RNA sequence: UGGGCCCGCGCGGGAGAGUGACUCGGUUUCGGCCGGUCCGCCGAAGGAGCAACCGCCCCGGAAUCUCUCAGGCACAAGAGACCGCGCGUGGCUU
Dot-bracket structure: ......(((((((......((((...........)))).(((((..(((...((.....))...))))).)))........)))))))......